[Rfam]
RNA: Small nucleolar RNA SNORA9
RNA sequence: UUGCAAGCUUUCCAGCAUGCUUGGGUCUGGAGUGACUUGUUGCAGUCCUGCAGUGCUUGCCAGAGUAUUCUGAAAUGGUUUGAGGCCGUGCCCUGGCCCUUCUUAGAGCAUGGCCAUAGACAUUUCAGACAGUU
Number, nucleotide and partner (000 for none) at each position: 001u000002u000003g060004c059005a058006a057007g056008c055009u000010u000011u000012c000013c000014a000015g000016c000017a000018u044019g043020c042021u000022u000023g038024g037025g036026u035027c034028u000029g000030g000031a000032g000033u000034g027035a026036c025037u024038u023039g000040u000041u000042g020043c019044a018045g000046u000047c000048c000049u000050g000051c000052a000053g000054u000055g008056c007057u006058u005059g004060c003061c000062a000063g000064a000065g000066u000067a000068u000069u000070c000071u127072g126073a125074a124075a123076u000077g000078g000079u000080u000081u000082g000083a000084g000085g000086c113087c112088g111089u110090g109091c108092c000093c106094u105095g104096g000097c000098c000099c000100u000101u000102c000103u000104u095105a094106g093107a000108g091109c090110a089111u088112g087113g086114c000115c000116a000117u000118a000119g000120a000121c000122a000123u075124u074125u073126c072127a071128g000129a000130c000131a000132g000133u000134u000